RNA sequence: GAUCGAGUGGGCGACUAAUACAAUACCUUCGGGGAAUACGUCCAGCCUGCUGUAGGCUUUCGAACCACUCGAUCACCCUAAU
Numbered sequence: 001g002a003u004c005g006a007g008u009g010g011g012c013g014a015c016u017a018a019u020a021c022a023a024u025a026c027c028u029u030c031g032g033g034g035a036a037u038a039c040g041u042c043c044a045g046c047c048u049g050c051u052g053u054a055g056g057c058u059u060u061c062g063a064a065c066c067a068c069u070c071g072a073u074c075a076c077c078c079u080a081a082u
Stems, first nucleotide, its partner, number of pairs: 001074009013042003016038002026033002044058005